[Rfam]
RNA sequence: CUUACAGAGCUUAUUGGCAUUCUGUCCACCUCCUUUAUCAAUAGAACAAUUUCUCUCUUUUAUUUUCCCUGUCAUAUAUGCAUAUUUACAUAUUUAUAUGGAGGUGGGCAUACUGCCAACUGAGCUCUGUUGG
Numbered sequence: 001c002u003u004a005c006a007g008a009g010c011u012u013a014u015u016g017g018c019a020u021u022c023u024g025u026c027c028a029c030c031u032c033c034u035u036u037a038u039c040a041a042u043a044g045a046a047c048a049a050u051u052u053c054u055c056u057c058u059u060u061u062a063u064u065u066u067c068c069c070u071g072u073c074a075u076a077u078a079u080g081c082a083u084a085u086u087u088a089c090a091u092a093u094u095u096a097u098a099u100g101g102a103g104g105u106g107g108g109c110a111u112a113c114u115g116c117c118a119a120c121u122g123a124g125c126u127c128u129g130u131u132g133g
Base pairs, nucleotide, nucleotide: 011123014119015118016117017116018115019114023110024109025108026107027106028105029104030103031102032101033100
A member of the RNA family "MIR394 microRNA precursor family" from Ricinus communis, 133 nucleotides long. It is one of the family's seed sequences. The family has 19 seed sequences and 724 matches in Rfam 15.1. The family's consensus secondary structure was predicted with WAR. The source organism's lineage runs through Eukaryota, Tracheophyta, eudicotyledons, rosids and Ricinus.